[Rfam]
RNA: c-di-GMP-I riboswitch aptamer
Organism: Firmicutes bacterium CAG:102
Nucleotides: 076
Base pairs, nucleotide, nucleotide: 012037013036017032018031019030020029021028022027040070041069042068043067047066048065049062050061051060
Number, partner (000 for none) and nucleotide at each position: 001000u002000g003000a004000a005000a006000a007000c008000g009000a010000u011000g012037g013036c014000a015000a016000a017032g018031c019030a020029g021028g022027c023000g024000a025000a026000a027022g028021c029020c030019u031018g032017u033000g034000a035000c036013g037012c038000a039000a040070a041069g042068c043067u044000a045000a046000a047066g048065g049062g050061c051060c052000u053000u054000u055000c056000a057000a058000a059000u060051g061050g062049c063000a064000g065048c066047c067043a068042g069041c070040u071000g072000c073000a074000a075000c076000a